[Rfam]
RNA sequence: CGCCAGUAUUUUACGAUUAACAGGCGAUUGUCUCUUGUGCAGAUCAUGUACAAAUUU
Dot-bracket structure: .................(((.((((....)))).)))....................
Numbered sequence: 001c002g003c004c005a006g007u008a009u010u011u012u013a014c015g016a017u018u019a020a021c022a023g024g025c026g027a028u029u030g031u032c033u034c035u036u037g038u039g040c041a042g043a044u045c046a047u048g049u050a051c052a053a054a055u056u057u
Stems, first nucleotide, its partner, number of pairs: 018037003022033004
This 57-nucleotide RNA from Carnegiea gigantea belongs to the Rfam family "Plastid-rps18 3UTR RNA". Rfam classes the family as a cis-regulatory element. A search with the family's covariance model found it, with a score of 62 bits. Plastid rps18 is a non-coding RNA (ncRNA) present in plastids. It was identified as a short stem-loop motif in the 3 prime untranslate region (3UTR) of rps18 gene. The family's consensus secondary structure was predicted with LocARNA.